Background:
This 56-nucleotide RNA sequence from Nocardia gamkensis belongs to the Rfam family "msiK RNA". Pairs were carried over by alignment from the consensus structure, which is taken from published work.
RNA sequence: UCGCCGCACCCUUACUCGGAUCGUCCGGCACGUUCCUGCCGGGAUGGGAUGUGAAU
Numbered sequence: 001u002c003g004c005c006g007c008a009c010c011c012u013u014a015c016u017c018g019g020a021u022c023g024u025c026c027g028g029c030a031c032g033u034u035c036c037u038g039c040c041g042g043g044a045u046g047g048g049a050u051g052u053g054a055a056u
Stems, first nucleotide, its partner, number of pairs: 009048003013044001025042006